The family of this 85-nucleotide RNA from Phytophthora boehmeriae is "tRNA". Pairs were carried over by alignment from the consensus structure, which is taken from published work. It scores 55 bits against the family's covariance model. By type it is a transfer RNA. From the family's description: Transfer RNA (tRNA) molecules are approximately 80 nucleotides in length. Rfam links the family to the GO term triplet codon-amino acid adaptor activity.
RNA sequence: GGUAUCUUGCCCGAGUGGUCUAAGGGGGCGGACUUAAGAUCCGCUAGACGUUCAGUCUGCGUGGGUUCAAACCCCACAGGUACCA
Numbered sequence: 001g002g003u004a005u006c007u008u009g010c011c012c013g014a015g016u017g018g019u020c021u022a023a024g025g026g027g028g029c030g031g032a033c034u035u036a037a038g039a040u041c042c043g044c045u046a047g048a049c050g051u052u053c054a055g056u057c058u059g060c061g062u063g064g065g066u067u068c069a070a071a072c073c074c075c076a077c078a079g080g081u082a083c084c085a
Stems, first nucleotide, its partner, number of pairs: 001084007010026003028044005061077005